[Rfam]
A member of the RNA family "Flavo-1 RNA" from Flavobacterium psychrophilum, 82 nucleotides long. The sequence is in the family's curated seed alignment. Lineage of the source: Bacteria > Bacteroidota > Flavobacteriia > Flavobacteriales > Flavobacterium psychrophilum. The family's RNA type in Rfam is small RNA.
RNA sequence: CCGCGUGAGGGAUAGCAGCGGAAAUCCUUUUUUUGAGGCUUUUCGCCGAUAAAAAAGAUUGUAGCGCAUAGCCCGACCCGAC
Numbered sequence: 001c002c003g004c005g006u007g008a009g010g011g012a013u014a015g016c017a018g019c020g021g022a023a024a025u026c027c028u029u030u031u032u033u034u035g036a037g038g039c040u041u042u043u044c045g046c047c048g049a050u051a052a053a054a055a056a057g058a059u060u061g062u063a064g065c066g067c068a069u070a071g072c073c074c075g076a077c078c079c080g081a082c
Base pairs, nucleotide, nucleotide: 009074010073011072013070014069018065019064023060024059025058026057029055030054031053032052033051037047038046039045